[Rfam]
RNA: Cyano-1 RNA
RNA sequence: UAGUGUGUGAGGAGCAAUGUUGAACUUAAAAAGCGCUUGGGGUGGAAACACGGCAACACUCCCAGGCGUUUUUUAUU
Number, nucleotide and partner (000 for none) at each position: 001u000002a000003g000004u000005g000006u000007g000008u000009g000010a000011g000012g000013a000014g000015c000016a000017a000018u000019g000020u000021u000022g000023a000024a000025c000026u000027u075028a074029a073030a072031a071032a000033g000034c068035g067036c000037u000038u000039g063040g062041g061042g059043u058044g057045g000046a000047a000048a000049c000050a000051c000052g000053g000054c000055a000056a000057c044058a043059c042060u000061c041062c040063c039064a000065g000066g000067c035068g034069u000070u000071u031072u030073u029074u028075a027076u000077u000